[Rfam]
RNA sequence: GAACCCUUGACAUCACUCUGAAACGUGCCAUACUUCACGGUGGUUCGUUUCAAUUUUUGUUCAAGGAAGAUCACGUAAAAGUCCACAUACUCACCGCUACAUUCUGGGAUUUCCCUAAAUGGAUGUCGUGGUCCAUUAGUCUGGUCUACAU
Number, nucleotide and partner (000 for none) at each position: 001g000002a000003a000004c000005c000006c000007u064008u063009g062010a000011c000012a000013u000014c000015a000016c000017u000018c000019u052020g051021a050022a049023a048024c047025g000026u000027g044028c043029c042030a000031u000032a000033c000034u000035u000036c000037a000038c000039g000040g000041u000042g029043g028044u027045u000046c000047g024048u023049u022050u021051c020052a019053a000054u000055u000056u000057u000058u000059g000060u000061u000062c009063a008064a007065g000066g000067a000068a000069g000070a000071u000072c000073a000074c000075g000076u000077a000078a000079a000080a000081g146082u000083c144084c143085a000086c000087a000088u000089a000090c000091u000092c000093a000094c131095c130096g129097c128098u000099a126100c125101a124102u000103u123104c122105u121106g000107g000108g000109a000110u000111u000112u000113c000114c000115c000116u000117a000118a000119a000120u000121g105122g104123a103124u101125g100126u099127c000128g097129u096130g095131g094132u000133c000134c000135a000136u000137u000138a000139g000140u000141c000142u000143g084144g083145u000146c081147u000148a000149c000150a000151u000
About this RNA
This 151-nucleotide sequence from Clonostachys rosea belongs to the Rfam family "Small nucleolar RNA snR80". A search with the family's covariance model found it, with a score of 53 bits. Lineage of the source: Eukaryota > Fungi > leotiomyceta > Sordariomycetes > Clonostachys.